[Rfam]
RNA sequence: GCGUAAUGAUGAUGAACUUUUAUCAACCGAAAUUUCCAUGAAUGGAUAAAAUCCUCCUACUCAUUCUGA
Numbered sequence: 001g002c003g004u005a006a007u008g009a010u011g012a013u014g015a016a017c018u019u020u021u022a023u024c025a026a027c028c029g030a031a032a033u034u035u036c037c038a039u040g041a042a043u044g045g046a047u048a049a050a051a052u053c054c055u056c057c058u059a060c061u062c063a064u065u066c067u068g069a
Base pairs, nucleotide, nucleotide: 006064007063008062009061027045028044
RNA: Small nucleolar RNA Z105
Organism: Thalictrum thalictroides